RNA sequence: UUGCUGUGGCUGGUCAAAUGGAACCAAGUCAGGUGUUUCUGCGAGGUUUGGUCCCCUUCAACCAGCUACUGCGU
Number, nucleotide and partner (000 for none) at each position: 001u000002u000003g072004c071005u000006g069007u000008g067009g066010c065011u064012g063013g062014u061015c000016a000017a058018a057019u000020g054021g053022a052023a000024c051025c050026a049027a048028g047029u046030c045031a000032g000033g000034u000035g000036u000037u000038u000039c000040u000041g000042c000043g000044a000045g030046g029047u028048u027049u026050g025051g024052u022053c021054c020055c000056c000057u018058u017059c000060a000061a014062c013063c012064a011065g010066c009067u008068a000069c006070u000071g004072c003073g000074u000
Rfam assigns this 74-nucleotide RNA from Danio rerio to the family "mir-133 microRNA precursor family". The family's consensus secondary structure was predicted with PFOLD. Gene Ontology terms of the family: miRNA-mediated post-transcriptional gene silencing and RISC complex. From the family's description: mir-133 was first experimentally characterised in mouse and homologues have since been discovered in several other species. The mature sequence is excised from the 3' arm of the hairpin. It is one of the family's seed sequences.